MIR7504 microRNA precursor family: a 122-nucleotide RNA from Gossypium davidsonii.
A search with the family's covariance model found it, with a score of 95 bits.

RNA sequence: AACAGGAGAACGACAAAUCAGAUUUUUCCUCUUGAUUUUCACCUAUUUCCUCCUAAAAAUAUUCAAAUCCAACUAAAAUUCUAAAAAUCAAGUGGAAAAAUCUGAUUUAUUGUUCUCAUAUU
Numbered sequence: 001a002a003c004a005g006g007a008g009a010a011c012g013a014c015a016a017a018u019c020a021g022a023u024u025u026u027u028c029c030u031c032u033u034g035a036u037u038u039u040c041a042c043c044u045a046u047u048u049c050c051u052c053c054u055a056a057a058a059a060u061a062u063u064c065a066a067a068u069c070c071a072a073c074u075a076a077a078a079u080u081c082u083a084a085a086a087a088u089c090a091a092g093u094g095g096a097a098a099a100a101u102c103u104g105a106u107u108u109a110u111u112g113u114u115c116u117c118a119u120a121u122u
Base pairs, nucleotide, nucleotide: 001122002121004119006117007116008115009114010113011112012111013110015108016107017106018105019104020103021102022101023100024099025098026097027096029094031092032091033090034089035088036087037086038085039084041082045079046078047077048076